[Rfam]
RNA sequence: AUAAAAACGGCUGUAACGGAGUGCUUCGCGCACGGGCUGUGAUCCAUC
Numbered sequence: 001a002u003a004a005a006a007a008c009g010g011c012u013g014u015a016a017c018g019g020a021g022u023g024c025u026u027c028g029c030g031c032a033c034g035g036g037c038u039g040u041g042a043u044c045c046a047u048c
Stems, first nucleotide, its partner, number of pairs: 008039005021033004
Background:
The family of this 48-nucleotide RNA sequence from Gemmiger sp. An194 is "ssnA RNA". The base pairs follow the family's consensus structure, which is taken from published work. The source organism's lineage runs through Bacteria, Bacillota, Eubacteriales, Oscillospiraceae and Gemmiger. By type it is a cis-regulatory element.